[Rfam]
RNA sequence: CGAUUAAGCUAGGGGUGCCUGAGUCCCAACCAGGCUGAGAUUACACCCUGAGAACCUGAGUCCGGCUAGUACCGGCGGAGGGAAGCUUGUAAUCGAGAGG
Numbered sequence: 001c002g003a004u005u006a007a008g009c010u011a012g013g014g015g016u017g018c019c020u021g022a023g024u025c026c027c028a029a030c031c032a033g034g035c036u037g038a039g040a041u042u043a044c045a046c047c048c049u050g051a052g053a054a055c056c057u058g059a060g061u062c063c064g065g066c067u068a069g070u071a072c073c074g075g076c077g078g079a080g081g082g083a084a085g086c087u088u089g090u091a092a093u094c095g096a097g098a099g100g
Base pairs, nucleotide, nucleotide: 006088007087008086009085010084011049012048013047014046016043017035018034019033020032021031055081056080057079062075063074064073065072
This 100-nucleotide RNA from Desertifilum tharense belongs to the Rfam family "TPP riboswitch aptamer (THI element)". About the family: Vitamin B(1) in its active form thiamin pyrophosphate (TPP) is an essential coenzyme that is synthesised by coupling of pyrimidine and thiazole moieties in bacteria. The previously detected thiamin-regulatory element, thi box was extended, resulting in a new, highly conserved RNA secondary structure, the THI element, which is widely distributed in eubacteria and also occurs in some archaea. Analysis of operon structures identified a large number of new candidate thiamin-regulated genes, mostly transporters, in various prokaryotic organisms. The organism belongs to Desertifilum tharense, within Bacteria.